[Rfam]
RNA sequence: UUUGGGGUAGGAUGUAACGCGUAAAGUGUCGAAGGGACGGAAUGUGACCUUCGAACGAAAAGCCAUCAGGUCGACUUUCUGGUAGCUUGCGGUGUUGCUUUCGCAUUCGCCAUU
Number, nucleotide and partner (000 for none) at each position: 001u000002u000003u112004g111005g110006g000007g000008u000009a000010g102011g101012a100013u000014g098015u097016a096017a095018c094019g093020c091021g090022u089023a000024a000025a000026g056027u055028g000029u054030c053031g052032a051033a050034g049035g048036g000037a000038c000039g000040g108041a107042a106043u105044g104045u000046g000047a000048c035049c034050u033051u032052c031053g030054a029055a027056c026057g000058a000059a000060a088061a087062g086063c085064c000065a000066u000067c000068a000069g000070g000071u000072c000073g000074a000075c000076u000077u000078u000079c000080u000081g000082g000083u000084a000085g063086c062087u061088u060089g022090c021091g020092g000093u019094g018095u017096u016097g015098c014099u000100u012101u011102c010103g000104c044105a043106u042107u041108c040109g000110c005111c004112a003113u000114u000
This 114-nucleotide RNA sequence from Lentilactobacillus parafarraginis belongs to the Rfam family "THF (Tetrahydrofolate) riboswitch aptamer". The organism belongs to Lentilactobacillus parafarraginis, within Bacteria. Gene Ontology term of the family: tetrahydrofolate metabolic process. Tetrahydrofolate (THF) riboswitch was first reported for Ames et al. as an RNA motif in 5' untranslated (5'-UTR)regions of folate transport and biosynthesis genes in Firmicutes genomes. The match comes from Rfam's covariance-model search (71 bits). The base pairs follow the family's consensus structure, which is taken from published work.